[Rfam]
RNA sequence: GCCUCGACGCAGGGGUCCUGCAACGGUUGAAUGUUGCGGGUGAGAGAUACCCUUUGAACCUGAUCUGGAUAAUGCCAGCGCAGGGAGCGUGGUGGUCACUCCC
Numbered sequence: 001g002c003c004u005c006g007a008c009g010c011a012g013g014g015g016u017c018c019u020g021c022a023a024c025g026g027u028u029g030a031a032u033g034u035u036g037c038g039g040g041u042g043a044g045a046g047a048u049a050c051c052c053u054u055u056g057a058a059c060c061u062g063a064u065c066u067g068g069a070u071a072a073u074g075c076c077a078g079c080g081c082a083g084g085g086a087g088c089g090u091g092g093u094g095g096u097c098a099c100u101c102c103c
Stems, first nucleotide, its partner, number of pairs: 007090004011053004016047001017040009059084004065078004